[Rfam]
RNA: mir-5928 microRNA precursor family
Organism: Haemonchus placei
RNA sequence: UGCCUAAAUUUGAUAUAGAGUAGAUUAGUAUGGUCAGCUGAUCCUACUAAUCUACUCUACUUCAAAUUUGGACCC
Numbered sequence: 001u002g003c004c005u006a007a008a009u010u011u012g013a014u015a016u017a018g019a020g021u022a023g024a025u026u027a028g029u030a031u032g033g034u035c036a037g038c039u040g041a042u043c044c045u046a047c048u049a050a051u052c053u054a055c056u057c058u059a060c061u062u063c064a065a066a067u068u069u070g071g072a073c074c075c
Base pairs, nucleotide, nucleotide: 002073004071005070006069007068008067009066011064012063013062016059017058018057019056020055021054022053023052025050026049027048028047029046030045032043033042034041035040
Dot-bracket structure: .(.((((((.(((..((((((((.((((((.((((....)))).)))))).))))))))..))).)))))).)..